Record summary:
Shown here is a 73-nucleotide RNA sequence from Allacma fusca, a member of the family "mir-133 microRNA precursor family". Rfam links the family to the GO terms miRNA-mediated post-transcriptional gene silencing and RISC complex. It scores 61 bits against the family's covariance model.
[Rfam]
RNA sequence: CAGCUUUAGCUGGCUGAAACCGGGCCAAAUUUCUAGUUGUAUAUAUUUGGUCCCCUUCAACCAGCUGUAGUUG
Numbered sequence: 001c002a003g004c005u006u007u008a009g010c011u012g013g014c015u016g017a018a019a020c021c022g023g024g025c026c027a028a029a030u031u032u033c034u035a036g037u038u039g040u041a042u043a044u045a046u047u048u049g050g051u052c053c054c055c056u057u058c059a060a061c062c063a064g065c066u067g068u069a070g071u072u073g
Stems, first nucleotide, its partner, number of pairs: 003071003008066006015059004022052002025050006